[Rfam]
Nucleotides: 074
Stems, first nucleotide, its partner, number of pairs: 002073005009066004014062005021055002024052002027049005
Number, partner (000 for none) and nucleotide at each position: 001000u002073g003072a004071a005070g006069c007000u008000u009066u010065g011064a012063u013000u014062g015061u016060c017059c018058a019000a020000a021055c022054g023000c024052a025051a026000u027049u028048c029047u030046u031045g032000u033000g034000a035000u036000u037000u038000u039000u040000u041000a042000a043000u044000u045031c046030a047029a048028g049027a050000u051025u052024u053000a054022c055021g056000u057000a058018u059017g060016g061015a062014c063012a064011u065010c066009g067000c068000c069006g070005c071004u072003u073002c074000a
The record is a 74-nucleotide RNA sequence from Folsomia candida, which matches "mir-219 microRNA precursor family" in Rfam.
A reference for the family is Lai et al. (2003), "Computational identification of Drosophila microRNA genes", Genome Biol.
The match comes from Rfam's covariance-model search (65 bits).
The base pairs follow the family's consensus structure, which was predicted with RNAalifold.